RNA sequence: UGGUAGAUGCACCCUGAUAACUCACUUCCCUAGUUGGCUACUCGCUGCUGGGGAUUUAUUUU
Numbered sequence: 001u002g003g004u005a006g007a008u009g010c011a012c013c014c015u016g017a018u019a020a021c022u023c024a025c026u027u028c029c030c031u032a033g034u035u036g037g038c039u040a041c042u043c044g045c046u047g048c049u050g051g052g053g054a055u056u057u058a059u060u061u062u
Base pairs, nucleotide, nucleotide: 002013003012004011027054028053029052030051031050032049033048034047036045
Dot-bracket structure: .(((......))).............((((((((.(........).))))))))........

The family of this 62-nucleotide RNA sequence from Brasilonema sennae is "Nitrogen stress-induced RNA 1". The literature on the family includes a 2010 paper in J Mol Biol by Ionescu et al., "Heterocyst-specific transcription of NsiR1, a non-coding RNA encoded in a tandem array of direct repeats in cyanobacteria". The family has 17 seed sequences and 962 matches in Rfam 15.1. Pairs were carried over by alignment from the consensus structure. Rfam classes the family as a small RNA.